Description:
A member of the RNA family "mir-196 microRNA precursor family" from Cynoglossus semilaevis, 77 nucleotides long. The family has 84 seed sequences and 1,813 matches in Rfam 15.1. Rfam links the family to the GO terms RISC complex and gene silencing by miRNA. The base pairs follow the family's consensus structure, which was predicted with PFOLD. It scores 75 bits against the family's covariance model. The literature on the family includes a 2003 paper in RNA by Lagos-Quintana et al., "New microRNAs from mouse and human".
RNA sequence: UGAGUGGUUUAGGUAGUCUCAUGUUGUUGGGCUUUAUUAUUAUUGCCCCCACAACACGAAACUGCCUUGAUUACCUC
Number, nucleotide and partner (000 for none) at each position: 001u000002g000003a000004g074005u073006g072007g071008u070009u069010u000011a067012g066013g065014u064015a063016g062017u061018c000019u059020c000021a000022u056023g055024u054025u053026g052027u051028u000029g049030g048031g047032c000033u000034u000035u000036a000037u000038u000039a000040u000041u000042a000043u000044u000045g000046c000047c031048c030049c029050c000051a027052c026053a025054a024055c023056a022057c000058g000059a019060a000061a017062c016063u015064g014065c013066c012067u011068u000069g009070a008071u007072u006073a005074c004075c000076u000077c000